RNA: U12 minor spliceosomal RNA
Organism: Punica granatum
RNA sequence: UUGCCUUAAACUAAUGAGUAAGGAAAACAAAGCGGGCGGUGGGAGCCGACCGCAGCGCCCAUGACUAGCUUUUCCUCGGAAAAGAGCAGACCCGUGGCGCACGAAUUUAUGGAGGGGCUAUAGGCUGGCCGAGCGUUGACGCUGCCUUCUUUCGCAGAACUCGCUCGUGCGGGCCUCCC
Number, nucleotide and partner (000 for none) at each position: 001u000002u000003g000004c023005c022006u021007u020008a019009a000010a000011c000012u000013a000014a000015u000016g000017a000018g000019u008020a007021a006022g005023g004024a000025a000026a000027a000028c000029a000030a000031a000032g053033c052034g051035g050036g000037c048038g047039g046040u000041g000042g000043g000044a000045g000046c039047c038048g037049a000050c035051c034052g033053c032054a000055g100056c099057g098058c097059c096060c000061a000062u000063g000064a000065c000066u000067a000068g000069c000070u000071u000072u000073u000074c000075c000076u000077c000078g000079g000080a000081a000082a000083a000084g000085a000086g000087c000088a000089g000090a000091c000092c000093c000094g000095u000096g059097g058098c057099g056100c055101a000102c000103g000104a000105a000106u000107u000108u000109a000110u000111g000112g000113a000114g000115g000116g179117g178118c000119u000120a000121u000122a176123g175124g174125c173126u172127g000128g170129c000130c167131g166132a000133g164134c163135g162136u000137u000138g000139a000140c000141g000142c157143u156144g155145c154146c000147u000148u000149c000150u000151u000152u000153c000154g145155c144156a143157g142158a000159a000160c000161u000162c135163g134164c133165u000166c131167g130168u000169g000170c128171g000172g126173g125174c124175c123176u122177c000178c117179c116